Rfam assigns this 116-nucleotide RNA from Paenibacillus beijingensis to the family "Glycine riboswitch aptamer".

[Rfam]
RNA sequence: GGACGCAACUCUGGAGAGUGCCGUUUGGCCACCGAAGGGGAAACCUUUCUCGUUUAUGAUCCGUCUGAUGGAGACGAGAAAGGAAAGCUCUCAGGUAAAAGGACAGAGAAAGGUCU
Numbered sequence: 001g002g003a004c005g006c007a008a009c010u011c012u013g014g015a016g017a018g019u020g021c022c023g024u025u026u027g028g029c030c031a032c033c034g035a036a037g038g039g040g041a042a043a044c045c046u047u048u049c050u051c052g053u054u055u056a057u058g059a060u061c062c063g064u065c066u067g068a069u070g071g072a073g074a075c076g077a078g079a080a081a082g083g084a085a086a087g088c089u090c091u092c093a094g095g096u097a098a099a100a101g102g103a104c105a106g107a108g109a110a111a112g113g114u115c116u
Base pairs, nucleotide, nucleotide: 009108010107011106012105013104020029021028022027031096032095033094034092035091038090039089040088044083045082046081047080048079049078050077051076052075053074054073055072
Taxonomically the source falls in Paenibacillus (Bacteria, Bacillota, Caryophanales, Paenibacillaceae). Its family is annotated with glycine biosynthetic process in the Gene Ontology. The match comes from Rfam's covariance-model search (55 bits).